RNA sequence: GUGGCUUUUACAUGAUAUUUAAAGAUUCAUGCUUUGAAUGAUUCACGUGUGAAGCUUAAUGUGUGUAUUAGCCUACAUUGAAUUUAGUACCCCUCGCUAUCCUGUUCGUCAAUUACGAUGAUGUUUCUUAGGACGUCGGGGUACAAUAUUC
Number, nucleotide and partner (000 for none) at each position: 001g076002u075003g073004g072005c071006u000007u000008u000009u067010a066011c065012a064013u063014g000015a000016u000017a000018u061019u000020u000021a000022a057023a000024g000025a000026u000027u000028c000029a000030u000031g055032c054033u053034u052035u051036g000037a000038a050039u049040g048041a000042u000043u000044c000045a000046c000047g000048u040049g039050u038051g035052a034053a033054g032055c031056u000057u022058a000059a000060u000061g018062u000063g013064u012065g011066u010067a009068u000069u000070a000071g005072c004073c003074u000075a002076c001077a000078u000079u000080g000081a000082a000083u000084u000085u000086a000087g144088u143089a142090c141091c140092c139093c138094u000095c135096g134097c000098u000099a000100u133101c132102c131103u130104g129105u000106u000107c000108g000109u121110c120111a119112a000113u000114u000115a000116c000117g000118a000119u111120g110121a109122u000123g000124u000125u000126u000127c000128u000129u104130a103131g102132g101133a100134c096135g095136u000137c000138g093139g092140g091141g090142u089143a088144c087145a000146a000147u000148a000149u000150u000151c000

Rfam assigns this 151-nucleotide sequence from Brassica carinata to the family "Small nucleolar RNA snoR136". The family's RNA type in Rfam is H/ACA-box small nucleolar RNA.